[Rfam]
RNA sequence: UUAUCCCUGCGGUGUUGGUUAAGGUCUGUAUUCUUUGAACCAAUUUUUGUACCGGGUUGCUGACCAGAUGGCUGCUGUUGUGAGCAUCUUGCAUUAACGAGAUGCACCUGAUGCAACCGGUUGGCGACCAUCUUGAACCAUCAGGUUCAAGAUAUCAGCCUGACGGCAUUCGCGGGGACCCU
Numbered sequence: 001u002u003a004u005c006c007c008u009g010c011g012g013u014g015u016u017g018g019u020u021a022a023g024g025u026c027u028g029u030a031u032u033c034u035u036u037g038a039a040c041c042a043a044u045u046u047u048u049g050u051a052c053c054g055g056g057u058u059g060c061u062g063a064c065c066a067g068a069u070g071g072c073u074g075c076u077g078u079u080g081u082g083a084g085c086a087u088c089u090u091g092c093a094u095u096a097a098c099g100a101g102a103u104g105c106a107c108c109u110g111a112u113g114c115a116a117c118c119g120g121u122u123g124g125c126g127a128c129c130a131u132c133u134u135g136a137a138c139c140a141u142c143a144g145g146u147u148c149a150a151g152a153u154a155u156c157a158g159c160c161u162g163a164c165g166g167c168a169u170u171c172g173c174g175g176g177g178a179c180c181c182u
Stems, first nucleotide, its partner, number of pairs: 004178008012169004018164002032152003036149006055129003059125006069119003073115003080107002088101004
This 182-nucleotide sequence from Nitrosomonas mobilis belongs to the Rfam family "6S / SsrS RNA". By type it is a non-coding RNA gene. NCBI's taxonomy places the organism under Bacteria, Pseudomonadati, Nitrosomonadales, Nitrosomonadaceae, Nitrosomonas. The family's consensus secondary structure is taken from published work.